RNA sequence: UUGAUAGAAUUGGGAGAGACUGUAUGUGGUAUACGGCGCCGAAGGGGAUUCGCAAUAACUCUCAGGCAAAAGGACCAAUUCCGGACG
Number, nucleotide and partner (000 for none) at each position: 001u000002u000003g000004a000005u000006a000007g081008a080009a079010u078011u077012g076013g075014g000015a000016g000017a000018g000019a000020c036021u035022g034023u033024a000025u000026g000027u000028g000029g000030u000031a000032u000033a023034c022035g021036g020037c000038g067039c066040c065041g063042a062043a000044g000045g061046g060047g059048a000049u000050u000051c000052g000053c000054a000055a000056u000057a000058a000059c047060u046061c045062u042063c041064a000065g040066g039067c038068a000069a000070a000071a000072g000073g000074a000075c013076c012077a011078a010079u009080u008081c007082c000083g000084g000085a000086c000087g000
Shown here is an 87-nucleotide RNA sequence from Anaerocolumna xylanovorans, a member of the family "Glycine riboswitch aptamer".